[Rfam]
RNA: Selenocysteine insertion sequence 1
Organism: Sarcophilus harrisii
RNA sequence: UGCACGCUAGUGACGAUCACACAGAAAACCCCGCAAGGGCUUGUGUAGAUCUGAUGUUUGGUGUA
Dot-bracket structure: (((((.........((((((((((.....(((....))).)))))).)))).........)))))